[Rfam]
RNA sequence: UUCUUAUCAAGAGAGAUGGAGGGAGCGGCCCGAAGAAGUCUCGGCAGCGGGUUCAUCUUAUGAACGCUGUGCCAAAUCCAGUUACACACAAGAUAAGAA
Numbered sequence: 001u002u003c004u005u006a007u008c009a010a011g012a013g014a015g016a017u018g019g020a021g022g023g024a025g026c027g028g029c030c031c032g033a034a035g036a037a038g039u040c041u042c043g044g045c046a047g048c049g050g051g052u053u054c055a056u057c058u059u060a061u062g063a064a065c066g067c068u069g070u071g072c073c074a075a076a077u078c079c080a081g082u083u084a085c086a087c088a089c090a091a092g093a094u095a096a097g098a099a
Base pairs, nucleotide, nucleotide: 001099002098003097004096005095006094007093008092013042014041015040016039017038021031022030023029027079028078043073044072045071046070048069049068051065052064053063054062077091082088